RNA sequence: UUCCAGUUUGCGCUUAAUCUCCAUUUGGAGAGCGGGGGAACCAAAUACGGGUUUUUGUACCGUGUUUUGAAUUCUUCAAGGGGUGAAUUUCGGAGCCUUUGCCAUGAGCAUUGCGUUUUCGAAUAGGGCGUCUCUCUUGCCCGAAUCCGUCAGCUAACCUCGUAAGCGUUCAUAGAGAGUGAUC
Numbered sequence: 001u002u003c004c005a006g007u008u009u010g011c012g013c014u015u016a017a018u019c020u021c022c023a024u025u026u027g028g029a030g031a032g033c034g035g036g037g038g039a040a041c042c043a044a045a046u047a048c049g050g051g052u053u054u055u056u057g058u059a060c061c062g063u064g065u066u067u068u069g070a071a072u073u074c075u076u077c078a079a080g081g082g083g084u085g086a087a088u089u090u091c092g093g094a095g096c097c098u099u100u101g102c103c104a105u106g107a108g109c110a111u112u113g114c115g116u117u118u119u120c121g122a123a124u125a126g127g128g129c130g131u132c133u134c135u136c137u138u139g140c141c142c143g144a145a146u147c148c149g150u151c152a153g154c155u156a157a158c159c160u161c162g163u164a165a166g167c168g169u170u171c172a173u174a175g176a177g178a179g180u181g182a183u184c
Base pairs, nucleotide, nucleotide: 011168012167013166014165018031019030020029032163033162034161035160036159037158042080081148082147083146089123090122091121092120093119094118095117126142127141128140129139
RNA: c-di-AMP riboswitch aptamer (ydaO/yuaA leader)